[Rfam]
RNA sequence: GCCUUCCUGCUAAGGUGCAUCUUGUGUAGUUAGUGAAGUAGUCUAGUAUCUACUGCGCUAGAUGUUCCUUUUGGCAGGAGUA
Dot-bracket structure: ...(((...(..(((.((((((.((((.(.(((................))).))))).)))))).)))...)...)))...
mir-17 microRNA precursor family: an 82-nucleotide RNA sequence from Danio rerio. Rfam describes the family as follows. This family represents the microRNA (miRNA) precursor mir-17, family, which includes mir-20, mir-91, and mir-103. miRNAs are transcribed as ~70nt precursors (modelled here) and subsequently processed by the Dicer enzyme to give a ~22nt product. In this case the mature sequence comes from the 3' arm of the precursor. The extents of the hairpin precursors are not generally known and are estimated based on hairpin prediction. The family's consensus secondary structure was predicted with RNAalifold. It is one of the family's seed sequences. NCBI's taxonomy places the organism under Eukaryota, Euteleostomi, Actinopterygii, Teleostei, Danio. For this family Rfam cites "Identification of novel genes coding for small expressed RNAs" (Lagos-Quintana et al., Science, 2001). Rfam 15.1 lists 4,687 matches to the family in 648 species.